[Rfam]
Description:
Rfam assigns this 221-nucleotide RNA from Heterodera glycines to the family "Small nucleolar RNA U3". The family's RNA type in Rfam is C/D-box small nucleolar RNA. Clan: U3 clan. Small nucleolar RNAs (snoRNAs) are involved in the processing and modification of rRNA in the nucleolus. There are two main classes of snoRNAs: the box C/D class, and the box H/ACA class. U3 snoRNA is a member of the box C/D class. Indeed, the box C/D element is a subset of the six short sequence elements found in all U3 snoRNAs, namely boxes A, A', B, C, C', and D. The U3 snoRNA secondary structure is characterised by a small 5' domain (with boxes A and A'), and a larger 3' domain (with boxes B, C, C', and D), the two domains being linked by a single-stranded hinge. Boxes B and C form the B/C motif, which appears to be exclusive to U3 snoRNAs, and boxes C' and D form the C'/D motif. The latter is functionally similar to the C/D motifs found in other snoRNAs. The 5' domain and the hinge region act as a pre-rRNA-binding domain. The 3' domain has conserved protein-binding sites. Both the box B/C and box C'/D motifs are sufficient for nuclear retention of U3 snoRNA. The box C'/D motif is also necessary for nucleolar localisation, stability and hyper-methylation of U3 snoRNA. Both box B/C and C'/D motifs are involved in specific protein interactions and are necessary for the rRNA processing functions of U3 snoRNA. A reference for the family is Speckmann et al. (1999), "Nuclear retention elements of U3 small nucleolar RNA", Mol Cell Biol. The sequence is in the family's curated seed alignment. Taxonomically the source falls in Heterodera (Eukaryota, Metazoa, Eumetazoa, Ecdysozoa).
RNA sequence: GAGACUGUACUUCUCAGGAUCAUUUCUGUAGUACGGUUUCCCGGUGGGAGUUCCACCUUGCUCGCCAAAGCACCCGCGAUGACGAGACUCGGCGUCGUCCCCUGAGCGUGAAGCUCGCCGGGGUCGUCGCUGGAAAGCAUUUUUGGUGAUCGCCCGGCGUUGAGGAACGUCGGCUGGCCCCCCUUGGGGGUCGGCCGCGGGGGCGACGCUCUCUGAGCGGG
Numbered sequence: 001g002a003g004a005c006u007g008u009a010c011u012u013c014u015c016a017g018g019a020u021c022a023u024u025u026c027u028g029u030a031g032u033a034c035g036g037u038u039u040c041c042c043g044g045u046g047g048g049a050g051u052u053c054c055a056c057c058u059u060g061c062u063c064g065c066c067a068a069a070g071c072a073c074c075c076g077c078g079a080u081g082a083c084g085a086g087a088c089u090c091g092g093c094g095u096c097g098u099c100c101c102c103u104g105a106g107c108g109u110g111a112a113g114c115u116c117g118c119c120g121g122g123g124u125c126g127u128c129g130c131u132g133g134a135a136a137g138c139a140u141u142u143u144u145g146g147u148g149a150u151c152g153c154c155c156g157g158c159g160u161u162g163a164g165g166a167a168c169g170u171c172g173g174c175u176g177g178c179c180c181c182c183c184u185u186g187g188g189g190g191u192c193g194g195c196c197g198c199g200g201g202g203g204c205g206a207c208g209c210u211c212u213c214u215g216a217g218c219g220g221g
Stems, first nucleotide, its partner, number of pairs: 001040011015028005048063004073221005092209011106170003116159004122153001126141001129138002173195002176192006